RNA sequence: UAGGGGGAGGGAGGCGACAUGGCUGGUAGUAUGGUAAUGGCAGCUCAUUACUUCCAGUCAUGUCUCUUUCUUCACCUUACA
Numbered sequence: 001u002a003g004g005g006g007g008a009g010g011g012a013g014g015c016g017a018c019a020u021g022g023c024u025g026g027u028a029g030u031a032u033g034g035u036a037a038u039g040g041c042a043g044c045u046c047a048u049u050a051c052u053u054c055c056a057g058u059c060a061u062g063u064c065u066c067u068u069u070c071u072u073c074a075c076c077u078u079a080c081a
Stems, first nucleotide, its partner, number of pairs: 001079005007073004013067002016064005023057004028052004
Dot-bracket structure: (((((.((((..((.(((((..((((.((((.................)))).))))..))))).))..)))).)))))..
Rfam assigns this 81-nucleotide sequence from Pipistrellus kuhlii to the family "mir-9186 microRNA precursor family". The family has 31 seed sequences and 143 matches in Rfam 15.1.